[Rfam]
RNA sequence: UUUUCAGUGAGGGAUGAUCUAAAGGAAGUCGCUAGCAAAACUGCGAACUGAUGAACAAGAGCAUCAUAUGAGGCGUAGGUCAGAGGCAAGUUGGCACAAGACAACGAAGCCAAGUGAUUUAAUGAUCACCGUAAAUGAUGCCGUUGUGUAGGGGCUGAGGGUUAG
Numbered sequence: 001u002u003u004u005c006a007g008u009g010a011g012g013g014a015u016g017a018u019c020u021a022a023a024g025g026a027a028g029u030c031g032c033u034a035g036c037a038a039a040a041c042u043g044c045g046a047a048c049u050g051a052u053g054a055a056c057a058a059g060a061g062c063a064u065c066a067u068a069u070g071a072g073g074c075g076u077a078g079g080u081c082a083g084a085g086g087c088a089a090g091u092u093g094g095c096a097c098a099a100g101a102c103a104a105c106g107a108a109g110c111c112a113a114g115u116g117a118u119u120u121a122a123u124g125a126u127c128a129c130c131g132u133a134a135a136u137g138a139u140g141c142c143g144u145u146g147u148g149u150a151g152g153g154g155c156u157g158a159g160g161g162u163u164a165g
Stems, first nucleotide, its partner, number of pairs: 001016001003014003029164001031162002036157001041151005046145003050141001062140006073132003076128001078127005085111003090105004

A member of the RNA family "Group II catalytic intron D1-D4-3" from Photobacterium profundum, 165 nucleotides long. Rfam's curators put it in the seed alignment.